[Rfam]
RNA sequence: CCUCUAGAAGAUGAAGAGUUGUGCUCCUACAUCCUGGCGGGACUUGACAUGGAGUACAAUCCACUUGUCUCUGCCAUGGUGGCUCGGGUGGAGCCAAUCACCGUCUCUGAGCUCUACUCGCAGCUGCUCAGCUUCGAGA
Numbered sequence: 001c002c003u004c005u006a007g008a009a010g011a012u013g014a015a016g017a018g019u020u021g022u023g024c025u026c027c028u029a030c031a032u033c034c035u036g037g038c039g040g041g042a043c044u045u046g047a048c049a050u051g052g053a054g055u056a057c058a059a060u061c062c063a064c065u066u067g068u069c070u071c072u073g074c075c076a077u078g079g080u081g082g083c084u085c086g087g088g089u090g091g092a093g094c095c096a097a098u099c100a101c102c103g104u105c106u107c108u109g110a111g112c113u114c115u116a117c118u119c120g121c122a123g124c125u126g127c128u129c130a131g132c133u134u135c136g137a138g139a
Base pairs, nucleotide, nucleotide: 004138005137007135008134088108090106091105092104
RNA: Small nucleolar RNA Z247
Organism: Eragrostis curvula